[Rfam]
RNA sequence: UUCUGGUGCCCUUCAUUCCACCGGAAUCUGUAGGGAUCAAAACCAGAUUUCAGUGAAAUGAAGCCCCUCAGACG
Numbered sequence: 001u002u003c004u005g006g007u008g009c010c011c012u013u014c015a016u017u018c019c020a021c022c023g024g025a026a027u028c029u030g031u032a033g034g035g036a037u038c039a040a041a042a043c044c045a046g047a048u049u050u051c052a053g054u055g056a057a058a059u060g061a062a063g064c065c066c067c068u069c070a071g072a073c074g
Stems, first nucleotide, its partner, number of pairs: 011063006019055003023051004028046003
A member of the RNA family "mir-205 microRNA precursor family" from Alligator mississippiensis, 74 nucleotides long. Lineage of the source: Eukaryota > Bilateria > Crocodylia > Alligatorinae > Alligator. On this family, see Lim et al., Science 2003: "Vertebrate microRNA genes".